[Rfam]
The family of this 169-nucleotide sequence from Medicago truncatula is "MIR2619 microRNA precursor family". Rfam links the family to the GO terms miRNA-mediated post-transcriptional gene silencing and RISC complex. The family's consensus secondary structure was predicted with RNAalifold. Taxonomically the source falls in Medicago (Eukaryota, Embryophyta, Tracheophyta, Papilionoideae). The match comes from Rfam's covariance-model search (119 bits).
RNA sequence: AAACUGCCCCUUAAGUUUUGCAACUGUAGCCGUUUUGGCCUCCAGAGCCAAUUUUUGGUAAAAAAAAACACGUGGCACCUCACUUAGGGUGUCACGUCAGUGUAGACCGAAUCAAAAUUGACUUUGGGGGGCCAAAACUGCCACAUAUGCAAAAUUUAGGGGGCGGUUU
Numbered sequence: 001a002a003a004c005u006g007c008c009c010c011u012u013a014a015g016u017u018u019u020g021c022a023a024c025u026g027u028a029g030c031c032g033u034u035u036u037g038g039c040c041u042c043c044a045g046a047g048c049c050a051a052u053u054u055u056u057g058g059u060a061a062a063a064a065a066a067a068a069c070a071c072g073u074g075g076c077a078c079c080u081c082a083c084u085u086a087g088g089g090u091g092u093c094a095c096g097u098c099a100g101u102g103u104a105g106a107c108c109g110a111a112u113c114a115a116a117a118u119u120g121a122c123u124u125u126g127g128g129g130g131g132c133c134a135a136a137a138c139u140g141c142c143a144c145a146u147a148u149g150c151a152a153a154a155u156u157u158a159g160g161g162g163g164c165g166g167u168u169u
Base pairs, nucleotide, nucleotide: 001169002168004166005165006164007163008162012158013157014156015155016154017153018152019151020150021149022148025145026144027143029141030140032138033137034136035135036134037133038132039131040130041129042127043126044125045124070097071096073094074093075092076091077090078089079088